[Rfam]
RNA: Guanidine-II riboswitch aptamer (mini-ykkC)
Organism: Paracoccus yeei
RNA sequence: CGGCGGGGACGGCCCCACCAUCACGGUCAAGCGCGCGGGACGGCCCGG
Numbered sequence: 001c002g003g004c005g006g007g008g009a010c011g012g013c014c015c016c017a018c019c020a021u022c023a024c025g026g027u028c029a030a031g032c033g034c035g036c037g038g039g040a041c042g043g044c045c046c047g048g
Stems, first nucleotide, its partner, number of pairs: 002019002005016004036047004